[Rfam]
RNA: mir-5879 microRNA precursor family
RNA sequence: AAUCAGUCUAGCAGAAAAGACUCAACUAUGCGUAGAUAUAGAUGCACAUAGUUGAGUCUUUCCUGCUAGGUUGUUU
Dot-bracket structure: ...((..(((((((.(((((((((((((((.(((........))).))))))))))))))).)))))))..))...